The record is a 67-nucleotide RNA sequence from Bacillus solimangrovi, which matches "Bacillaceae-1 RNA" in Rfam. Pairs were carried over by alignment from the consensus structure, which is taken from published work. Rfam classes the family as a small RNA. The source organism's lineage runs through Bacteria, Bacillati, Bacilli, Bacillaceae and Bacillus.
RNA sequence: UAUGAAGGAAGCCCCACUAAAACCAACCACGUCCUGUGGCGAACGUGGGAUCAACACAUCCAAUGCA
Numbered sequence: 001u002a003u004g005a006a007g008g009a010a011g012c013c014c015c016a017c018u019a020a021a022a023c024c025a026a027c028c029a030c031g032u033c034c035u036g037u038g039g040c041g042a043a044c045g046u047g048g049g050a051u052c053a054a055c056a057c058a059u060c061c062a063a064u065g066c067a
Base pairs, nucleotide, nucleotide: 011051013049014048015047016046017045027039028038029037030036055065056064